[Rfam]
RNA sequence: GUUGUAAUGUGUGCAUAGUUUCAUCUAUGUCUGACAGCAGUGUCUGUCUGUUUUGCAUUCAGAUCUUGCUAUCCACUCAAACAUCAUGCAGCCAAAGAGUAAGUUGGGUUCAUAGCACUAGUCUAGUGUUGUCUCAUUGCACAUAAUUUACCACCGGCAUCCGAGUUCCAUACACAG
Numbered sequence: 001g002u003u004g005u006a007a008u009g010u011g012u013g014c015a016u017a018g019u020u021u022c023a024u025c026u027a028u029g030u031c032u033g034a035c036a037g038c039a040g041u042g043u044c045u046g047u048c049u050g051u052u053u054u055g056c057a058u059u060c061a062g063a064u065c066u067u068g069c070u071a072u073c074c075a076c077u078c079a080a081a082c083a084u085c086a087u088g089c090a091g092c093c094a095a096a097g098a099g100u101a102a103g104u105u106g107g108g109u110u111c112a113u114a115g116c117a118c119u120a121g122u123c124u125a126g127u128g129u130u131g132u133c134u135c136a137u138u139g140c141a142c143a144u145a146a147u148u149u150a151c152c153a154c155c156g157g158c159a160u161c162c163g164a165g166u167u168c169c170a171u172a173c174a175c176a177g
Stems, first nucleotide, its partner, number of pairs: 013089004028079002032075002036070005042064005049057003105170004118157001123156001126154003130145003134141001135139001
Shown here is a 177-nucleotide RNA sequence from Rhinolophus ferrumequinum, a member of the family "Small nucleolar RNA SNORA23". The source organism's lineage runs through Eukaryota, Tetrapoda, Amniota, Eutheria and Rhinolophus. The family's consensus secondary structure was predicted with RNAalifold. From the family's description: The members of this family belong to the H/ACA class of snoRNAs which are thought to guide the sites of modification of uridines to pseudouridines. The literature on the family includes a 2001 paper in EMBO J by Huttenhofer et al., "RNomics: an experimental approach that identifies 201 candidates for novel, small, non-messenger RNAs in mouse". The family's RNA type in Rfam is H/ACA-box small nucleolar RNA.